[Rfam]
RNA sequence: UCGGAACAAGGACCAGUGCUAAAGGGUCCUGCCCAACGGCUACUAACAGGUGUUGUCCGGGCAGGGACCCUUUAGCACUGGUUCGUGUUACCAA
Numbered sequence: 001u002c003g004g005a006a007c008a009a010g011g012a013c014c015a016g017u018g019c020u021a022a023a024g025g026g027u028c029c030u031g032c033c034c035a036a037c038g039g040c041u042a043c044u045a046a047c048a049g050g051u052g053u054u055g056u057c058c059g060g061g062c063a064g065g066g067a068c069c070c071u072u073u074a075g076c077a078c079u080g081g082u083u084c085g086u087g088u089u090a091c092c093a094a
Base pairs, nucleotide, nucleotide: 003091005089006088007087008086010084011083012082013081014080015079016078017077018076019075020074021073022072023071024070025069026068027067029065030064032060033059036056037055043049044048

Description
This 94-nucleotide RNA from Sorghum bicolor belongs to the Rfam family "MIR5387 microRNA precursor family". The base pairs follow the family's consensus structure, which was predicted with RNAalifold. Rfam links the family to the GO terms miRNA-mediated post-transcriptional gene silencing and RISC complex. The organism belongs to Sorghum, within Eukaryota. It scores 80 bits against the family's covariance model.